[Rfam]
The family of this 136-nucleotide RNA from Tetrahymena thermophila is "U4 spliceosomal RNA". The family's consensus secondary structure is taken from published work. The family is grouped with related families in Rfam's "U4 clan". It scores 80 bits against the family's covariance model. Rfam's curators write: U4 small nuclear RNA (U4 snRNA) is a component of the major U2-dependent spliceosome. Its family is annotated with spliceosomal tri-snRNP complex assembly and U4 snRNP in the Gene Ontology. Rfam classes the family as a spliceosomal small nuclear RNA.

RNA sequence: AUCCUCGCGCAGAGGGGCAUUAUGGAAGCAUGUGAAGUAUUAACUGAUGCACUAUUAUUGCUAAUUGAGAACUAUGUUCGAUAAAUUGGUAUUGAGUUUAAACUUAUUACCAUCAUUUCUGAAGAGUCUUAUGGAC
Numbered sequence: 001a002u003c004c005u006c007g008c009g010c011a012g013a014g015g016g017g018c019a020u021u022a023u024g025g026a027a028g029c030a031u032g033u034g035a036a037g038u039a040u041u042a043a044c045u046g047a048u049g050c051a052c053u054a055u056u057a058u059u060g061c062u063a064a065u066u067g068a069g070a071a072c073u074a075u076g077u078u079c080g081a082u083a084a085a086u087u088g089g090u091a092u093u094g095a096g097u098u099u100a101a102a103c104u105u106a107u108u109a110c111c112a113u114c115a116u117u118u119c120u121g122a123a124g125a126g127u128c129u130u131a132u133g134g135a136c
Base pairs, nucleotide, nucleotide: 022055023054024053025052028050029049030048036045037044038043087112088111089110090109091108093106094105095104096103097102126136127135128134129133